[Rfam]
RNA sequence: UUGAGCCCGUCAGGAGAGAGUUUUCCCCGAGAAAACCGCCGAAGGCGCAUGCGGCACCCCAAUGGUGCUCUGAACGCUCAGGCAAAAGGACUGGCAACCGCCG
Numbered sequence: 001u002u003g004a005g006c007c008c009g010u011c012a013g014g015a016g017a018g019a020g021u022u023u024u025c026c027c028c029g030a031g032a033a034a035a036c037c038g039c040c041g042a043a044g045g046c047g048c049a050u051g052c053g054g055c056a057c058c059c060c061a062a063u064g065g066u067g068c069u070c071u072g073a074a075c076g077c078u079c080a081g082g083c084a085a086a087a088g089g090a091c092u093g094g095c096a097a098c099c100g101c102c103g
Stems, first nucleotide, its partner, number of pairs: 009095005020036004038083003041079002045077003051070001
This 103-nucleotide RNA from Polaromonas sp. A23 belongs to the Rfam family "Glycine riboswitch aptamer". Lineage of the source: Bacteria > Pseudomonadati > Pseudomonadota > Betaproteobacteria > Polaromonas. The base pairs follow the family's consensus structure. Gene Ontology term of the family: glycine biosynthetic process.